Rfam assigns this 340-nucleotide sequence from Luoshenia tenuis to the family "Bacterial RNase P class A". Pairs were carried over by alignment from the consensus structure, which is taken from published work. The source organism's lineage runs through Bacteria, Bacillati, Clostridia, Christensenellaceae and Luoshenia. Rfam's curators write: Ribonuclease P (RNase P) is a ubiquitous endoribonuclease, found in archaea, bacteria and eukarya as well as chloroplasts and mitochondria. Its family is annotated with ribonuclease P activity, dimeric ribonuclease P complex and tRNA processing in the Gene Ontology. The match comes from Rfam's covariance-model search (288 bits).

[Rfam]
RNA sequence: CGAGGCAGCUGGACAGCCGCGGUCCGCUUAGGGCGGGACGAGGAAAGUCCGAGCUCCAUAGGGCAGGGUGCUGGGUAAUCCCCAGUGGAGGCGACUCCAAGGAAAGUGCAACAGAGAUAUACCGCCCGUUUUGUAGCGGGUAAGGGUGGAAAGGCGAGGUAAGAGCUCACCAGCGGACAGGGUGACCUGCCCGCUCUGUAAACCCCACCUGGAGCAAGAUUGAUGGAAGAGCGCGGCGGCCCGCCGCAUUUCCAGAUAAUCGCUUGAGCCUGCGGGCAACCACAGGCCUAGAUAGAUGGCUGUUCACGACAGAACUCGGCUUACAGGCUGCGCUCGCAAA
Number, nucleotide and partner (000 for none) at each position: 001c336002g335003a334004g333005g331006c330007a329008g328009c327010u326011g324012g304013a303014c302015a301016g300017c299018c298019g000020c040021g039022g000023u037024c036025c035026g034027c033028u032029u000030a000031g000032g028033g027034c026035g025036g024037g023038a000039c021040g020041a000042g000043g000044a000045a322046a321047g320048u000049c319050c318051g317052a316053g315054c214055u213056c212057c211058a000059u000060a000061g242062g241063g240064c239065a000066g210067g209068g208069u207070g206071c085072u084073g083074g082075g081076u000077a000078a000079u000080c000081c075082c074083c073084a072085g071086u100087g098088g097089a096090g095091g000092c000093g000094a000095c090096u089097c088098c087099a000100a086101g205102g204103a000104a000105a000106g203107u202108g199109c198110a197111a000112c000113a000114g000115a000116g000117a000118u000119a000120u000121a000122c145123c144124g141125c140126c139127c138128g137129u136130u135131u000132u000133g000134u000135a130136g129137c128138g127139g126140g125141u124142a000143a000144g123145g122146g000147u000148g000149g000150a000151a000152a000153g171154g170155c000156g168157a167158g166159g000160u000161a000162a000163g000164a000165g000166c158167u157168c156169a000170c154171c153172a000173g194174c193175g192176g191177a000178c189179a188180g187181g186182g000183u000184g000185a000186c181187c180188u179189g178190c000191c176192c175193g174194c173195u000196c000197u110198g109199u108200a000201a000202a107203c106204c102205c101206c070207a069208c068209c067210u066211g057212g056213a055214g054215c000216a000217a000218g261219a260220u259221u258222g000223a000224u254225g253226g252227a251228a250229g249230a000231g000232c000233g247234c246235g245236g244237c243238g000239g064240c063241c062242c061243g237244c236245c235246g234247c233248a000249u229250u228251u227252c226253c225254a224255g000256a000257u000258a221259a220260u219261c218262g000263c000264u000265u000266g000267a000268g287269c286270c285271u284272g283273c000274g281275g280276g000277c000278a000279a000280c275281c274282a000283c272284a271285g270286g269287c268288c000289u000290a000291g000292a000293u000294a000295g000296a000297u000298g018299g017300c016301u015302g014303u013304u012305c000306a000307c000308g000309a000310c000311a000312g000313a000314a000315c053316u052317c051318g050319g049320c047321u046322u045323a000324c011325a000326g010327g009328c008329u007330g006331c005332g000333c004334u003335c002336g001337c000338a000339a000340a000